[Rfam]
RNA: L2-Alphaproteobacteria ribosomal protein leader
Organism: Thioclava sp. SK-1
RNA sequence: GGGGACCUUCGGGGCCCUUCAUUAGGCGAAAUUAUCCGCCGUCAGCUAACGGAAGACAGAAA
Numbered sequence: 001g002g003g004g005a006c007c008u009u010c011g012g013g014g015c016c017c018u019u020c021a022u023u024a025g026g027c028g029a030a031a032u033u034a035u036c037c038g039c040c041g042u043c044a045g046c047u048a049a050c051g052g053a054a055g056a057c058a059g060a061a062a
Base pairs, nucleotide, nucleotide: 001018002017003016004015006014007013008012025040026039027038028037030035